Shown here is a 367-nucleotide RNA sequence from Sphingorhabdus pulchriflava, a member of the family "Bacterial RNase P class A". The family's RNA type in Rfam is ribozyme. Rfam describes the family as follows. Ribonuclease P (RNase P) is a ubiquitous endoribonuclease, found in archaea, bacteria and eukarya as well as chloroplasts and mitochondria. Pairs were carried over by alignment from the consensus structure, which is taken from published work.
Nucleotides: 367
Base pairs, nucleotide, nucleotide: 001363002362003361004360005359006358007357008356009355010354011352012320013319014318015317016316017315018314020045021044023042024041025040026039027038028037050350051349052348054347055346056345057344058343059222060221061220062219068254069253072218073217074216075215076214077091078090079089080088081087092106093104094103095102096101107213108212112211113210114207115206116205129153130152131149132148133147135146136145137144138143161179162178163177164176165175166174180202181200182199183198185196186195187194188193226277227276228275229274236268237267238266239265240264241263246261247260248259249258250257284303285302286301288299289298290297291296
Number, partner (000 for none) and nucleotide at each position: 001363c002362c003361a004360g005359a006358g007357g008356g009355u010354c011352g012320g013319g014318c015317g016316a017315c018314c019000g020045c021044c022000g023042g024041u025040a026039c027038u028037u029000c030000g031000c032000u033000u034000g035000c036000g037028a038027g039026g040025u041024g042023c043000g044021g045020g046000a047000g048000g049000a050350a051349a052348g053000u054347c055346c056345g057344g058343g059222c060221u061220c062219c063000a064000g065000c066000g067000a068254g069253g070000a071000a072218c073217g074216g075215u076214g077091c078090c079089g080088g081087a082000u083000a084000a085000c086000u087081u088080c089079c090078g091077g092106c093104u094103g095102g096101g097000g098000c099000a100000a101096c102095c103094c104093a105000a106092g107213g108212g109000a110000a111000a112211g113210u114207g115206c116205c117000a118000c119000a120000g121000a122000a123000a124000g125000c126000a127000u128000a129153c130152c131149g132148c133147c134000g135146c136145g137144g138143c139000u140000u141000c142000g143138g144137c145136c146135g147133g148132g149131u150000a151000a152130g153129g154000g155000c156000g157000a158000a159000a160000g161179g162178g163177u164176g165175c166174g167000g168000c169000a170000a171000g172000a173000g174166c175165g176164c177163a178162c179161c180202g181200c182199g183198c184000g185196g186195g187194c188193g189000g190000c191000a192000a193188c194187g195186u196185c197000a198183g199182c200181g201000g202180c203000a204000c205116g206115g207114c208000a209000a210113a211112c212108c213107c214076c215075a216074c217073c218072g219062g220061g221060a222059g223000c224000a225000a226277a227276a228275u229274c230000g231000a232000a233000u234000a235000g236268g237267g238266g239265c240264g241263g242000c243000a244000c245000a246261u247260g248259g249258c250257a251000u252000c253069c254068u255000c256000c257250u258249g259248c260247c261246a262000g263241u264240c265239g266238c267237c268236c269000g270000g271000g272000u273000u274229g275228g276227u277226u278000g279000c280000u281000u282000g283000a284303c285302c286301c287000u288299u289298g290297u291296c292000g293000c294000a295000a296291g297290a298289c299288a300000c301286g302285g303284g304000c305000u306000a307000g308000a309000g310000g311000a312000a313000u314018g315017g316016u317015c318014g319013c320012c321000u322000a323000u324000c325000c326000c327000u328000u329000c330000g331000g332000g333000g334000u335000g336000g337000a338000c339000a340000g341000a342000a343058c344057c345056c346055g347054g348052c349051u350050u351000a352011c353000a354010g355009a356008c357007c358006c359005u360004c361003u362002g363001g364000c365000a366000c367000u